Description:
The record is a 92-nucleotide RNA sequence from Pterocles burchelli, which matches "Small nucleolar RNA SNORD60" in Rfam. Its family is annotated with nucleolus and RNA processing in the Gene Ontology. On this family, see Galardi et al., Mol Cell Biol 2002: "Purified box C/D snoRNPs are able to reproduce site-specific 2'-O-methylation of target RNA in vitro". Lineage of the source: Eukaryota > Vertebrata > Euteleostomi > Archelosauria > Pterocles. It scores 46 bits against the family's covariance model.
RNA sequence: GGCCGGUGAUGAUUUACCGUUUCCCUUUCUGACACCUCGUCUGAGGGCGGCGGGCGGCCGCGGCCCCUGCUGACGGUGCACAGCUGAGGCCC
Numbered sequence: 001g002g003c004c005g006g007u008g009a010u011g012a013u014u015u016a017c018c019g020u021u022u023c024c025c026u027u028u029c030u031g032a033c034a035c036c037u038c039g040u041c042u043g044a045g046g047g048c049g050g051c052g053g054g055c056g057g058c059c060g061c062g063g064c065c066c067c068u069g070c071u072g073a074c075g076g077u078g079c080a081c082a083g084c085u086g087a088g089g090c091c092c
Base pairs, nucleotide, nucleotide: 001091002090003089004088047061048060049059050058051057